[Rfam]
Nucleotides: 105
Stems, first nucleotide, its partner, number of pairs: 001022004006018001008017002035063009064103006071096007079089003
Number, partner (000 for none) and nucleotide at each position: 001022c002021c003020g004019g005000a006018u007000g008017c009016c010000c011000a012000a013000g014000g015000c016009g017008g018006a019004c020003c021002g022001g023000c024000a025000a026000a027000g028000c029000u030000g031000a032000g033000u034000g035063a036062g037061c038060g039059u040058c041057g042056a043055g044000g045000a046000c047000g048000a049000c050000u051000u052000g053000g054000a055043c056042u057041u058040g059039g060038c061037g062036c063035u064103c065102u066101c067100g068099u069098a070000u071096c072095c073094a074093u075092g076091u077090u078000g079089c080088u081087u082000c083000a084000a085000a086000g087081g088080a089079g090077g091076a092075u093074g094073u095072g096071g097000c098069u099068a100067u101066g102065a103064g104000a105000a

The record is a 105-nucleotide RNA from Rhizobium sp. P32RR-XVIII, which matches "Repression of heat shock gene expression (ROSE) element" in Rfam. NCBI's taxonomy places the organism under Bacteria, Pseudomonadati, Alphaproteobacteria, Hyphomicrobiales, Rhizobium. Rfam classes the family as an RNA thermoregulator. The literature on the family includes a 2001 paper in Nucleic Acids Res by Nocker et al., "A mRNA-based thermosensor controls expression of rhizobial heat shock genes". A search with the family's covariance model found it, with a score of 52 bits. Its family is annotated with regulation of translation and response to temperature stimulus in the Gene Ontology. The family's consensus secondary structure is taken from published work. Rfam describes the family as follows. This family represents a 5' UTR cis-regulatory element found in heat shock mRNAs and is known as the ROSE (repression of heat shock gene expression) element.